[Rfam]
RNA sequence: CCCGAGGCCCGGGCCCCUCUGACGGCUCCUGACGAGCCGCCAUGUCGGUCCUCUCCG
Numbered sequence: 001c002c003c004g005a006g007g008c009c010c011g012g013g014c015c016c017c018u019c020u021g022a023c024g025g026c027u028c029c030u031g032a033c034g035a036g037c038c039g040c041c042a043u044g045u046c047g048g049u050c051c052u053c054u055c056c057g
Stems, first nucleotide, its partner, number of pairs: 006051002009048004023039006

The family of this 57-nucleotide RNA from Hartmannibacter diazotrophicus is "terC RNA". The source organism's lineage runs through Bacteria, Pseudomonadati, Hyphomicrobiales, Pleomorphomonadaceae and Hartmannibacter.